[Rfam]
RNA sequence: ACAUAAAAAAAAAAUCAAGGUCGACUCUAUAACUGCUUCGUUGGGACAUGGCUGAAGAGGACCCUACUUGGUCCUAGAACGGCCUGAGGUAGAGGGGUUUUAGUCGGUAGGUCCGAGGACUUCUUCCUCGGGAAUCCGACACUACCCAGUCGUACGGACGGCUGGGUGUCUUUUGAAGAUUUCCCCUCUUCCACGAAA
Numbered sequence: 001a002c003a004u005a006a007a008a009a010a011a012a013a014a015u016c017a018a019g020g021u022c023g024a025c026u027c028u029a030u031a032a033c034u035g036c037u038u039c040g041u042u043g044g045g046a047c048a049u050g051g052c053u054g055a056a057g058a059g060g061a062c063c064c065u066a067c068u069u070g071g072u073c074c075u076a077g078a079a080c081g082g083c084c085u086g087a088g089g090u091a092g093a094g095g096g097g098u099u100u101u102a103g104u105c106g107g108u109a110g111g112u113c114c115g116a117g118g119a120c121u122u123c124u125u126c127c128u129c130g131g132g133a134a135u136c137c138g139a140c141a142c143u144a145c146c147c148a149g150u151c152g153u154a155c156g157g158a159c160g161g162c163u164g165g166g167u168g169u170c171u172u173u174u175g176a177a178g179a180u181u182u183c184c185c186c187u188c189u190u191c192c193a194c195g196a197a198a
Stems, first nucleotide, its partner, number of pairs: 038061002041058002068197002071194002088192002091189002094185003103140005112132008142168001144167005